[Rfam]
RNA sequence: UUUAGAUAAAGGCAAACUUAUCGAAAGGUAAGGACGCAAAGCUUUGGGUCUAAGGUUCUAAUAAUAGAACUAUGAUUGCCAGGUUGCCGAG
Numbered sequence: 001u002u003u004a005g006a007u008a009a010a011g012g013c014a015a016a017c018u019u020a021u022c023g024a025a026a027g028g029u030a031a032g033g034a035c036g037c038a039a040a041g042c043u044u045u046g047g048g049u050c051u052a053a054g055g056u057u058c059u060a061a062u063a064a065u066a067g068a069a070c071u072a073u074g075a076u077u078g079c080c081a082g083g084u085u086g087c088c089g090a091g
Stems, first nucleotide, its partner, number of pairs: 012037002017032006040085004045081003048076003055070006
Dot-bracket structure: ...........((...((((((....))))))...))..((((.((((((....((((((....))))))...)))..)))))))......
The record is a 91-nucleotide RNA sequence from Peribacillus saganii, which matches "c-di-GMP-I riboswitch aptamer" in Rfam. The match comes from Rfam's covariance-model search (87 bits).